[Rfam]
RNA sequence: AGUAUGCGUUGAAGCGAAAGGUUGCCGCCGAUGUUACCGCAAAGGCGGGUAAUUUUCGUGGAGUAUGUCCGUUUAAACCGGGCGA
Number, nucleotide and partner (000 for none) at each position: 001a000002g000003u000004a000005u000006g000007c000008g000009u000010u000011g000012a000013a000014g059015c058016g057017a000018a056019a055020g054021g053022u000023u000024g000025c048026c047027g046028c045029c044030g000031a000032u000033g000034u000035u000036a000037c000038c000039g000040c000041a000042a000043a000044g029045g028046c027047g026048g025049g000050u000051a000052a000053u021054u020055u019056u018057c016058g015059u014060g000061g000062a000063g000064u000065a000066u000067g000068u085069c084070c000071g083072u082073u081074u080075a000076a000077a000078c000079c000080g074081g073082g072083c071084g069085a068

S10-Clostridia ribosomal protein leader: an 85-nucleotide RNA from Anaerotruncus sp. CAG:390. The family's RNA type in Rfam is cis-regulatory leader. NCBI's taxonomy places the organism under Bacteria, Bacillota, Clostridia, Eubacteriales, Anaerotruncus. On this family, see Eckert and Weinberg, BMC Microbiol 2020: "Discovery of 20 novel ribosomal leader candidates in bacteria and archaea".